nadA riboswitch: a 49-nucleotide RNA sequence.
The sequence is in the family's curated seed alignment.
The literature on the family includes a 2020 paper in RNA by Huang et al., "Structure and ligand binding of the ADP-binding domain of the NAD(+) riboswitch".

RNA sequence: GCUUUCAACAUCCCCGUUCCGGCGCGGCAACGCGCGUGGAACUGAAGGC
Numbered sequence: 001g002c003u004u005u006c007a008a009c010a011u012c013c014c015c016g017u018u019c020c021g022g023c024g025c026g027g028c029a030a031c032g033c034g035c036g037u038g039g040a041a042c043u044g045a046a047g048g049c
Stems, first nucleotide, its partner, number of pairs: 001049007016042006022035005